The record is an 83-nucleotide sequence from Pieris macdunnoughi, which matches "mir-989 microRNA precursor family" in Rfam.
The base pairs follow the family's consensus structure, which was predicted with RNAalifold.
A search with the family's covariance model found it, with a score of 76 bits.
NCBI's taxonomy places the organism under Eukaryota, Mandibulata, Allotriocarida, Lepidoptera, Pieris.
RNA sequence: CAGGAUUGAAAUAGCCAUUACCUCACUAUCACGUGGUCUUGUUGGUACAACGUGUGAUGUGACGUAGUGGAAGUUUCGAUUCG
Numbered sequence: 001c002a003g004g005a006u007u008g009a010a011a012u013a014g015c016c017a018u019u020a021c022c023u024c025a026c027u028a029u030c031a032c033g034u035g036g037u038c039u040u041g042u043u044g045g046u047a048c049a050a051c052g053u054g055u056g057a058u059g060u061g062a063c064g065u066a067g068u069g070g071a072a073g074u075u076u077c078g079a080u081u082c083g
Base pairs, nucleotide, nucleotide: 003082004081005080006079007078008077009076010075015070016069017068018067019066020065021064023062024061025060026059029057030056031055032054034052035051
Dot-bracket structure: ..((((((((....(((((((.((((..((((.((...............)).)))).)))).)))))))....)))))))).